[Rfam]
RNA sequence: AGUGAGCAUAGAGGUGCGAAAACCAUGAGUACACAAUGGGAGGAUAAUGAGGUCUAAUGAUCAUUGUCGAAAGGGGAAUUCGCCGAAGUGCUGGGAAUCUCAUUGUCUCAGACACUGGUUUUGUAUCGAAUAGGUGCAAAACUGUCAUAUAGCUAAGCUAUAUGGAGAGCUAUCUCACGC
Numbered sequence: 001a002g003u004g005a006g007c008a009u010a011g012a013g014g015u016g017c018g019a020a021a022a023c024c025a026u027g028a029g030u031a032c033a034c035a036a037u038g039g040g041a042g043g044a045u046a047a048u049g050a051g052g053u054c055u056a057a058u059g060a061u062c063a064u065u066g067u068c069g070a071a072a073g074g075g076g077a078a079u080u081c082g083c084c085g086a087a088g089u090g091c092u093g094g095g096a097a098u099c100u101c102a103u104u105g106u107c108u109c110a111g112a113c114a115c116u117g118g119u120u121u122u123g124u125a126u127c128g129a130a131u132a133g134g135u136g137c138a139a140a141a142c143u144g145u146c147a148u149a150u151a152g153c154u155a156a157g158c159u160a161u162a163u164g165g166a167g168a169g170c171u172a173u174c175u176c177a178c179g180c
Base pairs, nucleotide, nucleotide: 006175008173009172010171011170016083017082018081019080020079023076024075033067034066035065036064037063038062039061087116088115089114090113091111092110093109094108095107096106117143118142119141120140121139122138123137124136125135126134127133145165146164147163148162149161150160151159